[Rfam]
RNA sequence: AGACCUUUGCAACACUCUGGCUCUUACCGUCCUUUCCCGCCUUCGGGUCGGAUUGGACAUUUGCAUCGUGGUAUAGGCUUAUUUUACGCAAAGAAGAUCAAGCUCAGCUAGACUCAUUACUCACCGCGGUAUCCUUGGAGUUUCUCCGUGGAUGCAGCGGUCCAUCUUCCGAGUCGACAU
Numbered sequence: 001a002g003a004c005c006u007u008u009g010c011a012a013c014a015c016u017c018u019g020g021c022u023c024u025u026a027c028c029g030u031c032c033u034u035u036c037c038c039g040c041c042u043u044c045g046g047g048u049c050g051g052a053u054u055g056g057a058c059a060u061u062u063g064c065a066u067c068g069u070g071g072u073a074u075a076g077g078c079u080u081a082u083u084u085u086a087c088g089c090a091a092a093g094a095a096g097a098u099c100a101a102g103c104u105c106a107g108c109u110a111g112a113c114u115c116a117u118u119a120c121u122c123a124c125c126g127c128g129g130u131a132u133c134c135u136u137g138g139a140g141u142u143u144c145u146c147c148g149u150g151g152a153u154g155c156a157g158c159g160g161u162c163c164a165u166c167u168u169c170c171g172a173g174u175c176g177a178c179a180u
Stems, first nucleotide, its partner, number of pairs: 007091003019079004025073004030057003035052002111175004124160004129155006
Rfam assigns this 180-nucleotide RNA sequence from Aspergillus sclerotialis to the family "Small nucleolar RNA snR80".
The family is grouped with related families in Rfam's "SNORA28 clan".
Its family is annotated with nucleolus and RNA processing in the Gene Ontology.
The organism belongs to Aspergillus subgen. Polypaecilum, within Eukaryota.
Rfam 15.1 lists 447 matches to the family in 358 species.
By type it is an H/ACA-box small nucleolar RNA.
A reference for the family is Schattner et al. (2004), "Genome-wide searching for pseudouridylation guide snoRNAs: analysis of the Saccharomyces cerevisiae genome", Nucleic Acids Res.